[Rfam]
RNA sequence: GGGCGUGAGGGCGAUCUGGCUGCGACAUCUGUCACCCCAUUGAUCGCCAGGGUUGAUUCCACUGAUCUGGCUGGCUAGGCGGGUGUCCCCUUCCUCCCUCAAUGCUCUGUGUGCGUCCCUCCCAAAGCUGCACGCUCUGUCAAAGAGGGCGACCUCCCCUACAGAGACAGUACCGUUCAUCGGUCAAGGGUAUACGGUAGCUGCACUCCCCUGCUAGAACCUCCAAACAAGCUCAAGGUCCAUUUCUAGGAGAACGUAGGGUAGUCAAGCUUCCAAGACUGCAGAUGCAUCCAAGUGAGUGAGAAUCAUGACUU
Numbered sequence: 001g002g003g004c005g006u007g008a009g010g011g012c013g014a015u016c017u018g019g020c021u022g023c024g025a026c027a028u029c030u031g032u033c034a035c036c037c038c039a040u041u042g043a044u045c046g047c048c049a050g051g052g053u054u055g056a057u058u059c060c061a062c063u064g065a066u067c068u069g070g071c072u073g074g075c076u077a078g079g080c081g082g083g084u085g086u087c088c089c090c091u092u093c094c095u096c097c098c099u100c101a102a103u104g105c106u107c108u109g110u111g112u113g114c115g116u117c118c119c120u121c122c123c124a125a126a127g128c129u130g131c132a133c134g135c136u137c138u139g140u141c142a143a144a145g146a147g148g149g150c151g152a153c154c155u156c157c158c159c160u161a162c163a164g165a166g167a168c169a170g171u172a173c174c175g176u177u178c179a180u181c182g183g184u185c186a187a188g189g190g191u192a193u194a195c196g197g198u199a200g201c202u203g204c205a206c207u208c209c210c211c212u213g214c215u216a217g218a219a220c221c222u223c224c225a226a227a228c229a230a231g232c233u234c235a236a237g238g239u240c241c242a243u244u245u246c247u248a249g250g251a252g253a254a255c256g257u258a259g260g261g262u263a264g265u266c267a268a269g270c271u272u273c274c275a276a277g278a279c280u281g282c283a284g285a286u287g288c289a290u291c292c293a294a295g296u297g298a299g300u301g302a303g304a305a306u307c308a309u310g311a312c313u314u
Base pairs, nucleotide, nucleotide: 001108002107003106006101007100008099009098010097011096013093014092018090019089024087025086026085027084028083029082030081031080032079033078035074036073037070038069039068042067043066044065045064046062117170119166120165121164122139125136127135128134140161142160147158148157149156200270201269202268206264207263209261210260211259212258213257214256221252222251223250224249227247229245230244231243297314298313299312300311
RNA: 7SK RNA